[Rfam]
RNA sequence: GGACAAGUCAAGUCCUACAAAAUGGCAACCGUUGGUGGACGGUUACACACCUACAAAUAACCUA
Numbered sequence: 001g002g003a004c005a006a007g008u009c010a011a012g013u014c015c016u017a018c019a020a021a022a023u024g025g026c027a028a029c030c031g032u033u034g035g036u037g038g039a040c041g042g043u044u045a046c047a048c049a050c051c052u053a054c055a056a057a058u059a060a061c062c063u064a
Stems, first nucleotide, its partner, number of pairs: 001015004007026004034051004
RNA: GP20-b RNA